[Rfam]
RNA sequence: AUAACAAGUUGCCAGCGACAAAUCCCUCGGUAGGGAAAGCUCGCUUUACAGCAGACUAGCUGGACCAACUGGCC
Numbered sequence: 001a002u003a004a005c006a007a008g009u010u011g012c013c014a015g016c017g018a019c020a021a022a023u024c025c026c027u028c029g030g031u032a033g034g035g036a037a038a039g040c041u042c043g044c045u046u047u048a049c050a051g052c053a054g055a056c057u058a059g060c061u062g063g064a065c066c067a068a069c070u071g072g073c074c
Base pairs, nucleotide, nucleotide: 007070008069009068010067012063013062014061015060016059023036024035025034026033038057039056041054043052044051
A member of the RNA family "DUF3800-II RNA", 74 nucleotides long. Rfam classes the family as a small RNA. Pairs were carried over by alignment from the consensus structure, which is taken from published work. It is one of the family's seed sequences.